[Rfam]
RNA sequence: AAAUAAAAGCAGAAGCACCCGCUUCUCGCCUUAGUUGACGAAGUCACUGGGCUAGAUAGUUUUCACCUAUUUUGAUUAAGGUGGAGUACGUGCGGGUUCUAUAAGAACUCGUUUUUUUAUUGUCGA
Numbered sequence: 001a002a003a004u005a006a007a008a009g010c011a012g013a014a015g016c017a018c019c020c021g022c023u024u025c026u027c028g029c030c031u032u033a034g035u036u037g038a039c040g041a042a043g044u045c046a047c048u049g050g051g052c053u054a055g056a057u058a059g060u061u062u063u064c065a066c067c068u069a070u071u072u073u074g075a076u077u078a079a080g081g082u083g084g085a086g087u088a089c090g091u092g093c094g095g096g097u098u099c100u101a102u103a104a105g106a107a108c109u110c111g112u113u114u115u116u117u118u119a120u121u122g123u124c125g126a
Base pairs, nucleotide, nucleotide: 011026012025013024014023015022016021028052029051030050036046037045038044039043092112093111094110095109096108097107098106099105100104